[Rfam]
RNA: pemK RNA
Organism: Lacrimispora saccharolytica
RNA sequence: ACAAUGAUACUUACGGUUUGAACGCUUCACAGCAUUGACCGUCGCGCCAUCAGCAUGGGGCGGGGUGAAAUUCCCAUGA
Numbered sequence: 001a002c003a004a005u006g007a008u009a010c011u012u013a014c015g016g017u018u019u020g021a022a023c024g025c026u027u028c029a030c031a032g033c034a035u036u037g038a039c040c041g042u043c044g045c046g047c048c049a050u051c052a053g054c055a056u057g058g059g060g061c062g063g064g065g066u067g068a069a070a071u072u073c074c075c076a077u078g079a
Stems, first nucleotide, its partner, number of pairs: 012076001013042006043062003047058003063075003